[Rfam]
RNA sequence: UUUUUGUUUCAGGGCGGGGUGCAAUUCCCCACCGGCGGUAAAUGCACGGCAAGACCCUUUGCCAGGCGCAUGAGCCCGCGAGCCGCGAAGCGCGGCCGACCCGGUGCGAUUCCGGGGCCGACGGUAUAGUCCGGAUGGAAGAAACGGAAG
Numbered sequence: 001u002u003u004u005u006g007u008u009u010c011a012g013g014g015c016g017g018g019g020u021g022c023a024a025u026u027c028c029c030c031a032c033c034g035g036c037g038g039u040a041a042a043u044g045c046a047c048g049g050c051a052a053g054a055c056c057c058u059u060u061g062c063c064a065g066g067c068g069c070a071u072g073a074g075c076c077c078g079c080g081a082g083c084c085g086c087g088a089a090g091c092g093c094g095g096c097c098g099a100c101c102c103g104g105u106g107c108g109a110u111u112c113c114g115g116g117g118c119c120g121a122c123g124g125u126a127u128a129g130u131c132c133g134g135a136u137g138g139a140a141g142a143a144a145c146g147g148a149a150g
Stems, first nucleotide, its partner, number of pairs: 003148008017029003031130002033120002035079004074118002082096003100116005122133003
RNA: FMN riboswitch aptamer (RFN element)